[Rfam]
Rfam assigns this 96-nucleotide sequence from Carlito syrichta to the family "mir-589 microRNA precursor family". The base pairs follow the family's consensus structure, which was predicted with RNAalifold. The organism belongs to Carlito, within Eukaryota. Its family is annotated with RISC complex and miRNA-mediated post-transcriptional gene silencing in the Gene Ontology.

Nucleotides: 096
Stems, first nucleotide, its partner, number of pairs: 002095003007090001013087002016084002020079003024075002027072002031067002034064002037061004042056002045053002
Number, partner (000 for none) and nucleotide at each position: 001000a002095g003094c004093c005000a006000g007090u008000g009000c010000c011000c012000a013087g014086c015000g016084g017083c018000c019000g020079c021078u022077g023000a024075g025074a026000a027072c028071c029000a030000c031067g032066u033000c034064u035063g036000c037061u038060c039059u040058g041000c042056g043055c044000u045053g046052g047000u048000a049000c050000u051000g052046c053045c054000u055043g056042u057000u058040c059039a060038g061037a062000a063035c064034a065000a066032a067031c068000a069000c070000c071028g072027g073000c074025u075024u076000c077022u078021a079020g080000a081000a082000c083017g084016c085000g086014g087013c088000c089000a090007g091000a092000u093004g094003g095002c096000c